[Rfam]
RNA sequence: CCCCGAGUUCGACUUGACACAAUAUCCUGCCGUGGUAUUGUGCGACCUGCAGUGUCAGUCGAUCUCGGGA
Numbered sequence: 001c002c003c004c005g006a007g008u009u010c011g012a013c014u015u016g017a018c019a020c021a022a023u024a025u026c027c028u029g030c031c032g033u034g035g036u037a038u039u040g041u042g043c044g045a046c047c048u049g050c051a052g053u054g055u056c057a058g059u060c061g062a063u064c065u066c067g068g069g070a
Stems, first nucleotide, its partner, number of pairs: 002069006010061005021039006044056003